[Rfam]
RNA sequence: GGUUCGAUGCCACGUCGCCGAUAGCAUAUUGUAGCAGUGACCGGCGAUGCUAUGAUUGAACCGAAAUCGAUUCAAUUUCGCAUUAUAUAGGAACCUAUGUAUGGAUUCUCCAUUCCUUCAUAGAGCCGUUUUGUGCGAUUACAUUU
Numbered sequence: 001g002g003u004u005c006g007a008u009g010c011c012a013c014g015u016c017g018c019c020g021a022u023a024g025c026a027u028a029u030u031g032u033a034g035c036a037g038u039g040a041c042c043g044g045c046g047a048u049g050c051u052a053u054g055a056u057u058g059a060a061c062c063g064a065a066a067u068c069g070a071u072u073c074a075a076u077u078u079c080g081c082a083u084u085a086u087a088u089a090g091g092a093a094c095c096u097a098u099g100u101a102u103g104g105a106u107u108c109u110c111c112a113u114u115c116c117u118u119c120a121u122a123g124a125g126c127c128g129u130u131u132u133g134u135g136c137g138a139u140u141a142c143a144u145u146u
Base pairs, nucleotide, nucleotide: 002061003060004059005058006057007056008055009053013049014048015047016046017045018044020042022040024035025034078138079137080136081135082134090127091126095123096122097121099119101117103115

The record is a 146-nucleotide sequence from Ipomoea nil, which matches "Small nucleolar RNA snoR2/U65" in Rfam.
The organism belongs to Ipomoea, within Eukaryota.
On this family, see Shaw et al., J Cell Sci 1998: "Localization and processing from a polycistronic precursor of novel snoRNAs in maize".